A member of the RNA family "glmS glucosamine-6-phosphate activated ribozyme aptamer" from Bacillus safensis, 178 nucleotides long. A search with the family's covariance model found it, with a score of 131 bits. By type it is a riboswitch. The base pairs follow the family's consensus structure, which is taken from published work. About the family: This entry contains a glucosamine-6-phosphate activated ribozyme that is found in the mRNA for GlmS. GlmS is an enzyme that uses fructose-6-phosphate and glutamine to generate glucosamine-6-phosphate. The ribozyme catalyses self cleavage of the glmS mRNA that is thought to regulate GlmS activity. Gene Ontology terms of the family: regulation of gene expression and catalytic activity.
RNA sequence: CUUAUAAUUAUAGCGCCCGAACUAAGCGAUCGGACGAAAGAUGCUUAGUUGACGAGGAUGGAGGUUAUCGAAUUUUCGGCGGAUGCCUCCCGGCUGAUCAAAAAAAGAGAUCACAGCCGUAAGUGUUUCUUUAAACCAAAGAGGUGACUCUUUGUACAAAGGGAAUACACAUGAUCUC
Number, nucleotide and partner (000 for none) at each position: 001c000002u000003u000004a000005u000006a000007a000008u000009u000010a000011u000012a000013g000014c000015g000016c000017c000018c000019g000020a050021a049022c048023u047024a046025a045026g044027c043028g000029a000030u000031c000032g000033g000034a000035c000036g000037a000038a000039a000040g000041a000042u000043g027044c026045u025046u024047a023048g022049u021050u020051g000052a000053c000054g000055a000056g000057g000058a000059u000060g090061g089062a088063g087064g086065u000066u000067a000068u079069c078070g077071a076072a000073u000074u000075u000076u071077c070078g069079g068080c000081g000082g000083a000084u000085g000086c064087c063088u062089c061090c060091c119092g118093g117094c116095u115096g114097a000098u000099c000100a000101a000102a000103a000104a000105a000106a000107g000108a000109g000110a000111u000112c000113a000114c096115a095116g094117c093118c092119g091120u000121a000122a000123g168124u167125g166126u165127u164128u163129c162130u000131u000132u000133a000134a000135a000136c000137c154138a153139a152140a151141g150142a149143g148144g000145u000146g000147a000148c143149u142150c141151u140152u139153u138154g137155u000156a000157c000158a000159a000160a000161g000162g129163g128164a127165a126166u125167a124168c123169a000170c000171a000172u000173g000174a000175u000176c000177u000178c000